[Rfam]
RNA: mir-492 microRNA precursor family
RNA sequence: ACCAUCAGGGAACUUCGGGACAAGAUUCCUGGUGCCACACUUGAGAACUCCAAGAUUGUCCUGUAGAUCGACAAU
Number, nucleotide and partner (000 for none) at each position: 001a000002c000003c000004a000005u000006c000007a000008g000009g000010g069011a068012a000013c066014u065015u000016c063017g062018g061019g060020a059021c058022a057023a056024g000025a000026u000027u055028c054029c000030u052031g051032g050033u000034g048035c000036c000037a000038c000039a000040c000041u000042u000043g000044a000045g000046a000047a000048c034049u000050c032051c031052a030053a000054g028055a027056u023057u022058g021059u020060c019061c018062u017063g016064u000065a014066g013067a000068u011069c010070g000071a000072c000073a000074a000075u000